This 89-nucleotide RNA from Sphingomonas metalli belongs to the Rfam family "Glycine riboswitch aptamer". The family is grouped with related families in Rfam's "Glycine riboswitch clan". It scores 68 bits against the family's covariance model.
[Rfam]
RNA sequence: AUGCGACGCGCGGGAGAGAGCCCCUGAAGGGGCCGCCGAAGGAGCAACCACCCCGGAAUCUCUCAGGCACCAGGGACCGCGCGAGGCUC
Dot-bracket structure: ......(((((((......((((......)))).(((((..(((...((.....))...))))).)))........)))))))......